[Rfam]
RNA sequence: UGGGUCGGCAAGACGGUCGCGUUGGCUCGAGCAUCCGUCGUUCUGCGACAGGUGCGGCAGUCACCGAGGAACGUCCGGGCUCCGCAGAGCAGGGCGGUGGGUAACACCCACCCGGGGCAACCCGAGAGAACAGUGCCACAGAAAACAGACCGCCCUGGCUCCUUCGGGAGCCGGUGGUAAGGGUGAAACGGUGGUGUAAGAGACCACCAGCUGCCAUGGUGACAUGGCUGGCUAGGUAAACCUCGCCCGGAGCAAGGUCAGACAGAAGGCGAUACGGCUGCUCGUCGUGUCUUCGGGUAGACCGCUGGAGGCGUGCGGCAACGUACGUCGUAGAUAGAUGGCCGUCCAUGGGUUCGUGCGUUUUUCGCAGGGGCCCAAGACAGAACCCGGCGUAGCAGCCGGCCCAUUCG
Numbered sequence: 001u002g003g004g005u006c007g008g009c010a011a012g013a014c015g016g017u018c019g020c021g022u023u024g025g026c027u028c029g030a031g032c033a034u035c036c037g038u039c040g041u042u043c044u045g046c047g048a049c050a051g052g053u054g055c056g057g058c059a060g061u062c063a064c065c066g067a068g069g070a071a072c073g074u075c076c077g078g079g080c081u082c083c084g085c086a087g088a089g090c091a092g093g094g095c096g097g098u099g100g101g102u103a104a105c106a107c108c109c110a111c112c113c114g115g116g117g118c119a120a121c122c123c124g125a126g127a128g129a130a131c132a133g134u135g136c137c138a139c140a141g142a143a144a145a146c147a148g149a150c151c152g153c154c155c156u157g158g159c160u161c162c163u164u165c166g167g168g169a170g171c172c173g174g175u176g177g178u179a180a181g182g183g184u185g186a187a188a189c190g191g192u193g194g195u196g197u198a199a200g201a202g203a204c205c206a207c208c209a210g211c212u213g214c215c216a217u218g219g220u221g222a223c224a225u226g227g228c229u230g231g232c233u234a235g236g237u238a239a240a241c242c243u244c245g246c247c248c249g250g251a252g253c254a255a256g257g258u259c260a261g262a263c264a265g266a267a268g269g270c271g272a273u274a275c276g277g278c279u280g281c282u283c284g285u286c287g288u289g290u291c292u293u294c295g296g297g298u299a300g301a302c303c304g305c306u307g308g309a310g311g312c313g314u315g316c317g318g319c320a321a322c323g324u325a326c327g328u329c330g331u332a333g334a335u336a337g338a339u340g341g342c343c344g345u346c347c348a349u350g351g352g353u354u355c356g357u358g359c360g361u362u363u364u365u366c367g368c369a370g371g372g373g374c375c376c377a378a379g380a381c382a383g384a385a386c387c388c389g390g391c392g393u394a395g396c397a398g399c400c401g402g403c404c405c406a407u408u409c410g
Base pairs, nucleotide, nucleotide: 001406002405003404004403005402006401007400008399009398012346013345014344015343016342017341018340020066021065023063024062025061026060027059071393072392073391075390076389077388078387079386080252081251082250083249087283088282089281090280092248093247094246095245096244097111098110099109100108101107112126113124114123115122116121127243128242133241134240135237136236137235150182151181152178153177154176157172158171159170160169161168162167190208191207192206193205194204195203210232211230213228214227215226216225217224218223256303257302258301259300265294266293267292268291269290270289274288275287276286277285278284310329311328312327313326314325315324316323317322

Rfam assigns this 410-nucleotide RNA sequence to the family "Bacterial RNase P class A".
The match comes from Rfam's covariance-model search (285 bits).